The record is a 209-nucleotide sequence from Pseudomonas putida, which matches "PhrS" in Rfam.
RNA sequence: AUCGGACAACGGCAAACGAAUCGGGAGGCCAACAUGUUCUUCGACAAUGUGGUUAUCGCUGGUGUGGUAACGGUCGGGUUGAUGUUCGCGUUCUUUGCCGGUCUGGGCAUUUUCAUCUGGAAGGACUCGAACAAGCGCAAGCCGCGCUGACCUUCCAGGUUCACGGGCACGCAAGGCAUUUAGGGCGACUUCGGUCGCCCAUUUUUUUU
Numbered sequence: 001a002u003c004g005g006a007c008a009a010c011g012g013c014a015a016a017c018g019a020a021u022c023g024g025g026a027g028g029c030c031a032a033c034a035u036g037u038u039c040u041u042c043g044a045c046a047a048u049g050u051g052g053u054u055a056u057c058g059c060u061g062g063u064g065u066g067g068u069a070a071c072g073g074u075c076g077g078g079u080u081g082a083u084g085u086u087c088g089c090g091u092u093c094u095u096u097g098c099c100g101g102u103c104u105g106g107g108c109a110u111u112u113u114c115a116u117c118u119g120g121a122a123g124g125a126c127u128c129g130a131a132c133a134a135g136c137g138c139a140a141g142c143c144g145c146g147c148u149g150a151c152c153u154u155c156c157a158g159g160u161u162c163a164c165g166g167g168c169a170c171g172c173a174a175g176g177c178a179u180u181u182a183g184g185g186c187g188a189c190u191u192c193g194g195u196c197g198c199c200c201a202u203u204u205u206u207u208u209u
Base pairs, nucleotide, nucleotide: 010100011099012098013097049059050058051057076087077086078085079084167177168176170175183200184199185198186197187196188195189194

Rfam classes the family as a small RNA.
The organism belongs to Pseudomonas putida, within Bacteria.
Its family is annotated with quorum sensing in the Gene Ontology.
The family's consensus secondary structure was predicted with CMfinder.